[Rfam]
RNA: U4 spliceosomal RNA
RNA sequence: AGCUUUGUGUGGUGGCAGUAUCGUAGCCAAUGAGGUUUAUCUGAGGCGUGAUUAUUGCUAAUUGAAAAAGGUUUUCAACUUAAAAACAAUUAGAAUAACCUUGCUUAGAAUGGAUUUUCAAAAGUUGCUAUUUAAGAAUA
Numbered sequence: 001a002g003c004u005u006u007g008u009g010u011g012g013u014g015g016c017a018g019u020a021u022c023g024u025a026g027c028c029a030a031u032g033a034g035g036u037u038u039a040u041c042u043g044a045g046g047c048g049u050g051a052u053u054a055u056u057g058c059u060a061a062u063u064g065a066a067a068a069a070g071g072u073u074u075u076c077a078a079c080u081u082a083a084a085a086a087c088a089a090u091u092a093g094a095a096u097a098a099c100c101u102u103g104c105u106u107a108g109a110a111u112g113g114a115u116u117u118u119c120a121a122a123a124g125u126u127g128c129u130a131u132u133u134a135a136g137a138a139u140a
Base pairs, nucleotide, nucleotide: 020052021051022050023049024048026047027046028045034042035041079136080135081134082132083131085129087127088126089125090124091123